RNA sequence: UCUUAGGGAUGCUAGGGUUCCGGUUCGUCGAACGUCUGGUCCGAGAGCAGCCCGGCGUCGGUGCGUACGGUCGUCGGACCGUGCGCGCAUGGCGCUACACGGCGGGACAAAAGCCCGGGAGAU
Numbered sequence: 001u002c003u004u005a006g007g008g009a010u011g012c013u014a015g016g017g018u019u020c021c022g023g024u025u026c027g028u029c030g031a032a033c034g035u036c037u038g039g040u041c042c043g044a045g046a047g048c049a050g051c052c053c054g055g056c057g058u059c060g061g062u063g064c065g066u067a068c069g070g071u072c073g074u075c076g077g078a079c080c081g082u083g084c085g086c087g088c089a090u091g092g093c094g095c096u097a098c099a100c101g102g103c104g105g106g107a108c109a110a111a112a113g114c115c116c117g118g119g120a121g122a123u
Base pairs, nucleotide, nucleotide: 007052008051010049011048012047015042016041020039021038022036023033024032025031026030054096055095056094057093058092059091060090098118100121104116105115106114
RNA: Guanidine-I riboswitch aptamer